[Rfam]
RNA sequence: CUGUUUAUCCAUUCGCUGAGUACGCUGCUCUGACCUUCUUCCCAGUCUCGGUUCCUGUUCUGGGAGCUUGGGGCUGAGUAGCCACCAGCCCUGCUCUCUGCAGUGUUCUAUUGUGGAUUGCUUGUGUGCUGGCAGGCUACUACUGGUAAGAAUGGCUAGUGUCAGCAGGGAUGGCUCCUCUCUGGGUUCCAUCUCACCAAGAUGAGUGGUGCAAAUCUGAU
Numbered sequence: 001c002u003g004u005u006u007a008u009c010c011a012u013u014c015g016c017u018g019a020g021u022a023c024g025c026u027g028c029u030c031u032g033a034c035c036u037u038c039u040u041c042c043c044a045g046u047c048u049c050g051g052u053u054c055c056u057g058u059u060c061u062g063g064g065a066g067c068u069u070g071g072g073g074c075u076g077a078g079u080a081g082c083c084a085c086c087a088g089c090c091c092u093g094c095u096c097u098c099u100g101c102a103g104u105g106u107u108c109u110a111u112u113g114u115g116g117a118u119u120g121c122u123u124g125u126g127u128g129c130u131g132g133c134a135g136g137c138u139a140c141u142a143c144u145g146g147u148a149a150g151a152a153u154g155g156c157u158a159g160u161g162u163c164a165g166c167a168g169g170g171a172u173g174g175c176u177c178c179u180c181u182c183u184g185g186g187u188u189c190c191a192u193c194u195c196a197c198c199a200a201g202a203u204g205a206g207u208g209g210u211g212c213a214a215a216u217c218u219g220a221u
Stems, first nucleotide, its partner, number of pairs: 003216004009209007016201002020197002024166004028161001030159003034155002036152005041146002044075007051067006078140006088127002090124001093121002097117009168195007177186002

This 221-nucleotide RNA sequence belongs to the Rfam family "Small nucleolar RNA SNORD17". Gene Ontology terms of the family: nucleolus and RNA processing. Rfam 15.1 lists 1,015 matches to the family in 568 species. Rfam's curators put it in the seed alignment. The family's consensus secondary structure was predicted with RNAalifold.